[Rfam]
RNA sequence: AUUAGUAACAAAAAAUAAUGAAUAUGAAUCAUUAUCACCGUAAAUCCAAGGGUUUCUAUGUUAAGAUGUAUUUCAUAGAGUGAAACGGCCCCUAAGAAAGAUUUGACGAAAGCAAAUUUUGAUGGGAUAAUUUUUAAAUUAAAUUUUUUAAAAAAAGUGACAAGAAUUUUUCUUCAGGAAAUAGCUUUUUUUAAUAAUAAACCGUACCCUAAACCGACACAGGUGGAUAGGUCGAGUAGACUAAGGUGAAUGAGAGAACUAUAUUGAAGGAACUCGGCAAAAUGACUCUGUAACUUCGGGAGAAAGAGUGCCUCAGAAAUGAGGUGGCACAGAAUAGGGGGUUGCGACUGUUUAAUAAAAACUUAGGACUCUGCUAAAUGGUAACAUGAUGUAUAGGGUCUGACACCUGCCCGGUGCUGGAAGAUUAAUAGGAGAUGUUUACGCAUUGAAUGGAAGUCCCAGUAAACGGCGGCCGUAACUCUGACGGUCCUAAGGUAGCGAAAUUCCUUGUCGGGUAAGUUCCGACCUGCAUGAAUGGUGUAACGACAUCCCCGCUGUCUCCAAUAUAGACUCAGUGAAUUU
Numbered sequence: 001a002u003u004a005g006u007a008a009c010a011a012a013a014a015a016u017a018a019u020g021a022a023u024a025u026g027a028a029u030c031a032u033u034a035u036c037a038c039c040g041u042a043a044a045u046c047c048a049a050g051g052g053u054u055u056c057u058a059u060g061u062u063a064a065g066a067u068g069u070a071u072u073u074c075a076u077a078g079a080g081u082g083a084a085a086c087g088g089c090c091c092c093u094a095a096g097a098a099a100g101a102u103u104u105g106a107c108g109a110a111a112g113c114a115a116a117u118u119u120u121g122a123u124g125g126g127a128u129a130a131u132u133u134u135u136a137a138a139u140u141a142a143a144u145u146u147u148u149u150a151a152a153a154a155a156a157g158u159g160a161c162a163a164g165a166a167u168u169u170u171u172c173u174u175c176a177g178g179a180a181a182u183a184g185c186u187u188u189u190u191u192u193a194a195u196a197a198u199a200a201a202c203c204g205u206a207c208c209c210u211a212a213a214c215c216g217a218c219a220c221a222g223g224u225g226g227a228u229a230g231g232u233c234g235a236g237u238a239g240a241c242u243a244a245g246g247u248g249a250a251u252g253a254g255a256g257a258a259c260u261a262u263a264u265u266g267a268a269g270g271a272a273c274u275c276g277g278c279a280a281a282a283u284g285a286c287u288c289u290g291u292a293a294c295u296u297c298g299g300g301a302g303a304a305a306g307a308g309u310g311c312c313u314c315a316g317a318a319a320u321g322a323g324g325u326g327g328c329a330c331a332g333a334a335u336a337g338g339g340g341g342u343u344g345c346g347a348c349u350g351u352u353u354a355a356u357a358a359a360a361a362c363u364u365a366g367g368a369c370u371c372u373g374c375u376a377a378a379u380g381g382u383a384a385c386a387u388g389a390u391g392u393a394u395a396g397g398g399u400c401u402g403a404c405a406c407c408u409g410c411c412c413g414g415u416g417c418u419g420g421a422a423g424a425u426u427a428a429u430a431g432g433a434g435a436u437g438u439u440u441a442c443g444c445a446u447u448g449a450a451u452g453g454a455a456g457u458c459c460c461a462g463u464a465a466a467c468g469g470c471g472g473c474c475g476u477a478a479c480u481c482u483g484a485c486g487g488u489c490c491u492a493a494g495g496u497a498g499c500g501a502a503a504u505u506c507c508u509u510g511u512c513g514g515g516u517a518a519g520u521u522c523c524g525a526c527c528u529g530c531a532u533g534a535a536u537g538g539u540g541u542a543a544c545g546a547c548a549u550c551c552c553c554g555c556u557g558u559c560u561c562c563a564a565u566a567u568a569g570a571c572u573c574a575g576u577g578a579a580u581u582u
Base pairs, nucleotide, nucleotide: 001582008576009575015035016034017033018032019031020030036248037247038246039245044228045227046226047225050208051207055079056078057077058076059075060074064072065071086204087203088202091125092124096120097119098118100113102111103110104109129145130144131143132142133141148200149193150192153189154188155187156186157185158184162174163173164172165171214223215222230242231241232240233239251574252573253572254571259569260568261567262566263565264564265563266562268560269559270558285309286308287307288306289305294299310325311324312323313322314321315320326330338553339552340551341550343548344547345545346544350362351361366401367400368399369398370397371396372395373394374391378387379386380385404540405539406538407537409470410469411468414467415466416463417462418461419460420459423458424457425456429452430451434447435446436445437444438443471489472488473487474486475485476484490494500527510526511525512524513523514522515521
Record summary:
The family of this 582-nucleotide part of an RNA is "Bacterial large subunit ribosomal RNA". The base pairs follow the family's consensus structure, which is taken from published work. The match comes from Rfam's covariance-model search (2027 bits).